About this RNA: The family of this 99-nucleotide RNA sequence from Oxalobacteraceae bacterium CAVE-383 is "SAH (S-adenosyl-L-homocysteine) riboswitch aptamer". Taxonomically the source falls in Oxalobacteraceae (Bacteria, Pseudomonadati, Pseudomonadota, Burkholderiales). The match comes from Rfam's covariance-model search (54 bits).
RNA sequence: CGUAUCGAGGAGCGUUGCGACAAGGACAACUUAUUUUGAUCCUUGCCAGGCUUGAUACAGUCGCUUGAUUUCAUCGAUAAGCAACCGCGCUCACGUACU
Numbered sequence: 001c002g003u004a005u006c007g008a009g010g011a012g013c014g015u016u017g018c019g020a021c022a023a024g025g026a027c028a029a030c031u032u033a034u035u036u037u038g039a040u041c042c043u044u045g046c047c048a049g050g051c052u053u054g055a056u057a058c059a060g061u062c063g064c065u066u067g068a069u070u071u072c073a074u075c076g077a078u079a080a081g082c083a084a085c086c087g088c089g090c091u092c093a094c095g096u097a098c099u
Stems, first nucleotide, its partner, number of pairs: 002058007021045006